Rfam assigns this 309-nucleotide RNA from Calidris pygmaea to the family "7SK RNA". The organism belongs to Calidris, within Eukaryota. Pairs were carried over by alignment from the consensus structure, which is taken from published work. Rfam 15.1 lists 49,373 matches to the family in 668 species. Rfam classes the family as a non-coding RNA gene. Clan: 7SK clan. Rfam describes the family as follows. 7SK was discovered as an abundant small nuclear RNA in the mid-70s but a possible function has only recently been suggested. Two independent studies have found that 7SK RNA binds the CDK9/cyclin T complex (known as elongation factor P-TEFb). P-TEFb activates transcription by phosphorylating the C-terminal domain of RNA polymerase II. This process is negatively regulated by the 7SK RNP. The secondary structure of 7SK RNA shown here was proposed by Wasserman and Steitz on the basis of chemical modification and enzymatic cleavage experiments.
RNA sequence: GGAUGUGAGGGUGAUCUGGCUGUGACAUCUGUCACCCCAUUGAUCGCCAGGGUUGAUUUGGCUAAUAUGGCUGGCUAAGCGGGUGUCCCCUUCCUCCCUCACUGCUCCAUGUGUGUCCCUCCUGAGCGCACUCAGUCAAAGAGGGCGACCUUCCCUGGUAGAGACAUACCAUUCAUUGUUCAAGGGUAUAUGGUAGCUGCACUCCCCUGGCAGAACCUCCAAACAAGCUCAAGGUGCAUUUGUAAGAGAACAUAGGGUACAAAAGAUUCCAAGACUGCAGACACAUCCAAGUGAGGAACUGCAUGUUUU
Numbered sequence: 001g002g003a004u005g006u007g008a009g010g011g012u013g014a015u016c017u018g019g020c021u022g023u024g025a026c027a028u029c030u031g032u033c034a035c036c037c038c039a040u041u042g043a044u045c046g047c048c049a050g051g052g053u054u055g056a057u058u059u060g061g062c063u064a065a066u067a068u069g070g071c072u073g074g075c076u077a078a079g080c081g082g083g084u085g086u087c088c089c090c091u092u093c094c095u096c097c098c099u100c101a102c103u104g105c106u107c108c109a110u111g112u113g114u115g116u117c118c119c120u121c122c123u124g125a126g127c128g129c130a131c132u133c134a135g136u137c138a139a140a141g142a143g144g145g146c147g148a149c150c151u152u153c154c155c156u157g158g159u160a161g162a163g164a165c166a167u168a169c170c171a172u173u174c175a176u177u178g179u180u181c182a183a184g185g186g187u188a189u190a191u192g193g194u195a196g197c198u199g200c201a202c203u204c205c206c207c208u209g210g211c212a213g214a215a216c217c218u219c220c221a222a223a224c225a226a227g228c229u230c231a232a233g234g235u236g237c238a239u240u241u242g243u244a245a246g247a248g249a250a251c252a253u254a255g256g257g258u259a260c261a262a263a264a265g266a267u268u269c270c271a272a273g274a275c276u277g278c279a280g281a282c283a284c285a286u287c288c289a290a291g292u293g294a295g296g297a298a299c300u301g302c303a304u305g306u307u308u309u
Base pairs, nucleotide, nucleotide: 001108002107003106005102006101007100008099009098010097011096013093014092018090019089024087025086026085027084028083029082030081031080032079035074036073037070038069039068043066044065046062047061048060119163120162121161122135123134124133125132136158137157138156143154144153145152197265198264203259205257206256207255208254209253217248218247219246223243224242225241226240227239301309